[Rfam]
Background
This 57-nucleotide RNA sequence from Nocardioides sp. HDW12B belongs to the Rfam family "msiK RNA". The match comes from Rfam's covariance-model search (54 bits). It is annotated as a cis-regulatory element. The source organism's lineage runs through Bacteria, Bacillati, Propionibacteriales, Nocardioidaceae and Nocardioides.

Nucleotides: 057
Base pairs, nucleotide, nucleotide: 009049010048012046013045014044026043027042028041029040030039031038
Number, partner (000 for none) and nucleotide at each position: 001000g002000c003000a004000c005000a006000u007000c008000a009049c010048u011000c012046u013045c014044a015000c016000a017000a018000c019000g020000g021000a022000u023000c024000g025000u026043c027042c028041g029040g030039c031038a032000c033000g034000u035000u036000c037000c038031u039030g040029c041028c042027g043026g044014u045013g046012g047000a048010g049009g050000a051000g052000g053000c054000g055000u056000u057000u